[Rfam]
RNA sequence: UUCGAUAAAUGGCAAACUUGCUGAAAGGCAAGGACGCAAAGCUGAGGGUCUAAGGUUCCGCAUGGAACUACGGCAGUCUGGCUACCGAA
Numbered sequence: 001u002u003c004g005a006u007a008a009a010u011g012g013c014a015a016a017c018u019u020g021c022u023g024a025a026a027g028g029c030a031a032g033g034a035c036g037c038a039a040a041g042c043u044g045a046g047g048g049u050c051u052a053a054g055g056u057u058c059c060g061c062a063u064g065g066a067a068c069u070a071c072g073g074c075a076g077u078c079u080g081g082c083u084a085c086c087g088a089a
Base pairs, nucleotide, nucleotide: 012037013036017032018031019030020029021028022027040083041082042081043080045079046078047077048074049073050072055068056067057066058065